[Rfam]
RNA sequence: GUUGCAAGUUUGAGGCUGUAGUAGAAGCAGUUACAGUAUAGCCUUGUCAGAUUCCAGCAAAUCUGUGAAUUCUGCU
Number, nucleotide and partner (000 for none) at each position: 001g000002u000003u000004g000005c000006a000007a000008g000009u000010u000011u000012g000013a044014g043015g042016c041017u040018g000019u000020a076021g075022u074023a073024g072025a071026a070027g039028c000029a037030g000031u000032u000033a000034c000035a000036g000037u029038a000039u027040a017041g016042c015043c014044u013045u000046g000047u000048c065049a064050g063051a062052u061053u060054c000055c000056a000057g000058c000059a000060a053061a052062u051063c050064u049065g048066u000067g000068a000069a000070u026071u025072c024073u023074g022075c021076u020

This 76-nucleotide sequence from Alligator mississippiensis belongs to the Rfam family "Mammalian CPEB3 ribozyme". Taxonomically the source falls in Alligator (Eukaryota, Craniata, Crocodylia, Alligatorinae). The base pairs follow the family's consensus structure, which is taken from published work.